This 102-nucleotide sequence from Parahoeflea olei belongs to the Rfam family "rpsB sRNA". The source organism's lineage runs through Bacteria, Alphaproteobacteria, Hyphomicrobiales, Rhizobiaceae and Parahoeflea. The match comes from Rfam's covariance-model search (40 bits). On this family, see Meyer et al., BMC Genomics 2009: "Identification of candidate structured RNAs in the marine organism 'Candidatus Pelagibacter ubique'". Pairs were carried over by alignment from the consensus structure, which is taken from published work.
[Rfam]
RNA sequence: CACACGUGGGGCAUGGGGUGAUCCGGGAGAAAUCCGGACCAGUCCGCCGGUGGCGCACACGCGCUCACGCCCUGCGGAGGUUCAACCGGAAACAGGAGUACA
Numbered sequence: 001c002a003c004a005c006g007u008g009g010g011g012c013a014u015g016g017g018g019u020g021a022u023c024c025g026g027g028a029g030a031a032a033u034c035c036g037g038a039c040c041a042g043u044c045c046g047c048c049g050g051u052g053g054c055g056c057a058c059a060c061g062c063g064c065u066c067a068c069g070c071c072c073u074g075c076g077g078a079g080g081u082u083c084a085a086c087c088g089g090a091a092a093c094a095g096g097a098g099u100a101c102a
Base pairs, nucleotide, nucleotide: 001079003077005076006075007074008073009072010071011070015045016044024036025035027034053064054063055062